RNA sequence: AAGGUGUCUUACGCCACCGCCAUGGAUUGGUUCAUAGCUGUUUGCUUUGCCUUC
Dot-bracket structure: .((..(.(..(.((.((.((.(((((....))))).)).))..)))..).))).
Numbered sequence: 001a002a003g004g005u006g007u008c009u010u011a012c013g014c015c016a017c018c019g020c021c022a023u024g025g026a027u028u029g030g031u032u033c034a035u036a037g038c039u040g041u042u043u044g045c046u047u048u049g050c051c052u053u054c
Stems, first nucleotide, its partner, number of pairs: 002053002006051001008049001011046001013045002016041002019038002022035005

Editing element of GABA-3 exon 9: a 54-nucleotide RNA sequence from Vicugna pacos. The family's consensus secondary structure is taken from published work. The source organism's lineage runs through Eukaryota, Chordata, Euteleostomi, Dipnotetrapodomorpha and Vicugna. The family's RNA type in Rfam is cis-regulatory element. On this family, see Ohlson et al., RNA 2007: "Editing modifies the GABA(A) receptor subunit alpha3".